The record is an 83-nucleotide sequence from Cavia porcellus, which matches "mir-1343 microRNA precursor family" in Rfam.
[Rfam]
RNA sequence: CUGGCGUCGGUGCUGGGGAGCGGCCCUCGGGGCCGGCCUUCACUGCGGCCGCUACUGGGACCAGCACUCUCGCUGAGGGCCCG
Dot-bracket structure: ..(((.((...((.((((.((.(..(((((...(((((........)))))...)))))..).)).)))).))...)))))..

It scores 57 bits against the family's covariance model.